[Rfam]
The family of this 170-nucleotide sequence from Calothrix sp. PCC 7507 is "c-di-AMP riboswitch aptamer (ydaO/yuaA leader)".
The base pairs follow the family's consensus structure.
On this family, see Barrick et al., Proc Natl Acad Sci U S A 2004: "New RNA motifs suggest an expanded scope for riboswitches in bacterial genetic control".
The organism belongs to Calothrix, within Bacteria.

Nucleotides: 170
Stems, first nucleotide, its partner, number of pairs: 005155003032150006042049002050135003058111004114129004
Number, partner (000 for none) and nucleotide at each position: 001000u002000g003000a004000g005155a006154g007153c008000a009000u010000u011000u012000g013000c014000a015000a016000a017000u018000c019000a020000a021000g022000g023000u024000a025000a026000a027000c028000g029000g030000g031000a032150g033149c034148g035147g036146a037145g038000g039000a040000a041000c042049c043048a044000u045000a046000u047000u048043u049042g050135g051134g052133g053000c054000g055000u056000a057000u058111c059110u060109u061108c062000a063000c064000u065000a066000c067000a068000g069000g070000c071000u072000u073000a074000a075000g076000u077000a078000u079000g080000a081000a082000a083000c084000a085000c086000a087000u088000a089000c090000u091000u092000c093000a094000u095000a096000c097000c098000u099000a100000a101000u102000c103000c104000c105000u106000c107000a108061g109060a110059a111058g112000a113000a114129g115128g116127a117126c118000a119000u120000c121000u122000c123000u124000c125000a126117g127116u128115u129114c130000u131000a132000g133052c134051c135050c136000g137000u138000c139000a140000g141000c142000u143000a144000a145037c146036u147035u148034c149033g150032u151000a152000g153007g154006c155005u156000u157000u158000g159000a160000g161000a162000g163000g164000a165000g166000a167000c168000u169000g170000a